[Rfam]
RNA: U7 small nuclear RNA
RNA sequence: AAAUGUUACAGCUUUUAGAAUUUGUCUAGGUUUUCCAGUCCUCACUGGAAGACACCCCC
Numbered sequence: 001a002a003a004u005g006u007u008a009c010a011g012c013u014u015u016u017a018g019a020a021u022u023u024g025u026c027u028a029g030g031u032u033u034u035c036c037a038g039u040c041c042u043c044a045c046u047g048g049a050a051g052a053c054a055c056c057c058c059c
Stems, first nucleotide, its partner, number of pairs: 029056003032051008